[Rfam]
RNA sequence: UCGAGAACCUUUUGAAUCAAAGUAGUGAUUCAAAAGGUUCUUACAAA
Numbered sequence: 001u002c003g004a005g006a007a008c009c010u011u012u013u014g015a016a017u018c019a020a021a022g023u024a025g026u027g028a029u030u031c032a033a034a035a036g037g038u039u040c041u042u043a044c045a046a047a
Stems, first nucleotide, its partner, number of pairs: 003042017
Shown here is a 47-nucleotide RNA sequence from Corylus yunnanensis, a member of the family "Plastid-ccsA-ndhD-1 3UTR RNA". The base pairs follow the family's consensus structure, which was predicted with LocARNA. It is annotated as a cis-regulatory element. Plastid-ccsA-ndhD-1 is a non-coding RNA (ncRNA) recognised in plastids. It was found in the three prime untranslated region (3UTR) of ccsA and ndhD genes, its 3UTR location suggests a role in transcript maturation.